Shown here is a 77-nucleotide RNA from Phaseolus vulgaris, a member of the family "Small nucleolar RNA Z105". The base pairs follow the family's consensus structure, which was predicted with CMfinder. The family has 11 seed sequences and 621 matches in Rfam 15.1. By type it is a C/D-box small nucleolar RNA. Taxonomically the source falls in Phaseolus (Eukaryota, Embryophyta, Mesangiospermae, Fabaceae). A reference for the family is Chen et al. (2003), "The high diversity of snoRNAs in plants: identification and comparative study of 120 snoRNA genes from Oryza sativa", Nucleic Acids Res.
RNA sequence: UUGGCAUGAUGAUGAUAAUUUUAAAUACUUUCAUAUGAUUAUUUAUAUGAUGAAAACAAUCCUCCUACGCAUUCUGA
Numbered sequence: 001u002u003g004g005c006a007u008g009a010u011g012a013u014g015a016u017a018a019u020u021u022u023a024a025a026u027a028c029u030u031u032c033a034u035a036u037g038a039u040u041a042u043u044u045a046u047a048u049g050a051u052g053a054a055a056a057c058a059a060u061c062c063u064c065c066u067a068c069g070c071a072u073u074c075u076g077a
Base pairs, nucleotide, nucleotide: 006072007071008070031053032052